[Rfam]
RNA sequence: CUAUACAAAAGGCAAAGUUGUCGAAAGACAGUGACGCAAAGCCAAGGGCCUAAAGGUAUUUCUACCUAUGGCAGCCGGCUGCUAUA
Numbered sequence: 001c002u003a004u005a006c007a008a009a010a011g012g013c014a015a016a017g018u019u020g021u022c023g024a025a026a027g028a029c030a031g032u033g034a035c036g037c038a039a040a041g042c043c044a045a046g047g048g049c050c051u052a053a054a055g056g057u058a059u060u061u062c063u064a065c066c067u068a069u070g071g072c073a074g075c076c077g078g079c080u081g082c083u084a085u086a
Stems, first nucleotide, its partner, number of pairs: 012037002017032006040080004046076002048072003055066004
A member of the RNA family "c-di-GMP-I riboswitch aptamer" from Aquibacillus salsiterrae, 86 nucleotides long. A search with the family's covariance model found it, with a score of 80 bits. The source organism's lineage runs through Bacteria, Bacillati, Bacillota, Bacillaceae and Aquibacillus.